[Rfam]
RNA sequence: GAAAGGUCGCUUUUCGCCAAAGGCGGCUGGGUGUUUUACCGAGGCACCCCAAUUAGG
Numbered sequence: 001g002a003a004a005g006g007u008c009g010c011u012u013u014u015c016g017c018c019a020a021a022g023g024c025g026g027c028u029g030g031g032u033g034u035u036u037u038a039c040c041g042a043g044g045c046a047c048c049c050c051a052a053u054u055a056g057g
Base pairs, nucleotide, nucleotide: 005028006027007026008025009024010023011022012021013020014019029049030048031047032046033045034044035043036042037041